Histone 3' UTR stem-loop: a 45-nucleotide sequence from Acanthaster planci. The mRNAs of metazoan histone genes lack a poly-A tail. 3' end processing occurs at a site between a highly conserved stem-loop (modelled by this family) and a purine rich region around 20 nts downstream (the histone downstream element, or HDE). The stem-loop is bound by a 31 kDa stem-loop binding protein (SLBP - also termed the histone hairpin binding protein, or HBP). Together with U7 snRNA binding of the HDE, SLBP binding nucleate s the formation of the processing complex. The histone 3' UTR stem-loop is also involved in nucleocytoplasmic transport of the mRNA, and in stability regulation and translation efficiency in the cytoplasm. The match comes from Rfam's covariance-model search (38 bits). The family's RNA type in Rfam is cis-regulatory element.
[Rfam]
RNA sequence: ACAUCGGCUCUUUUCAGAGCCACCACAAUUUCAAAAAAGAGAUGG
Number, nucleotide and partner (000 for none) at each position: 001a000002c000003a000004u000005c000006g021007g020008c019009u018010c017011u016012u000013u000014u000015c000016a011017g010018a009019g008020c007021c006022a000023c000024c000025a000026c000027a000028a000029u000030u000031u000032c000033a000034a000035a000036a000037a000038a000039g000040a000041g000042a000043u000044g000045g000